[Rfam]
RNA: mir-29 microRNA precursor family
RNA sequence: AGAAGCUGGUUUCACGUGGUGGUUUAGAUGUGUGCUGCUCUUGUCUAGCACCAUUUGAAAUCAGUGUUCU
Numbered sequence: 001a002g003a004a005g006c007u008g009g010u011u012u013c014a015c016g017u018g019g020u021g022g023u024u025u026a027g028a029u030g031u032g033u034g035c036u037g038c039u040c041u042u043g044u045c046u047a048g049c050a051c052c053a054u055u056u057g058a059a060a061u062c063a064g065u066g067u068u069c070u
Base pairs, nucleotide, nucleotide: 001070002069003068004067005065006064007063008062009061010060011059012058013057014056016054017053018052019051020050021049025047026046027045028044